[Rfam]
RNA sequence: CGGGAGGUUGGUGCGGACGUGUUCCUCGCCAACCGGGUCAGGUCCGGAAGGAAGCAGCCCCAACGAGAUCCUCACGGGUCGUUGCCAGCCUCCUUUUU
Numbered sequence: 001c002g003g004g005a006g007g008u009u010g011g012u013g014c015g016g017a018c019g020u021g022u023u024c025c026u027c028g029c030c031a032a033c034c035g036g037g038u039c040a041g042g043u044c045c046g047g048a049a050g051g052a053a054g055c056a057g058c059c060c061c062a063a064c065g066a067g068a069u070c071c072u073c074a075c076g077g078g079u080c081g082u083u084g085c086c087a088g089c090c091u092c093c094u095u096u097u098u
Base pairs, nucleotide, nucleotide: 004092005091006090007089008088010085013082014081015080018076019075020074021073025067026066027065028064035060036059037058038057043052044051045050
The record is a 98-nucleotide RNA from Devosia oryzisoli, which matches "Bacterial small signal recognition particle RNA" in Rfam. About the family: The signal recognition particle (SRP) is a universally conserved ribonucleoprotein involved in the co-translational targeting of proteins to membranes. By type it is a non-coding RNA gene.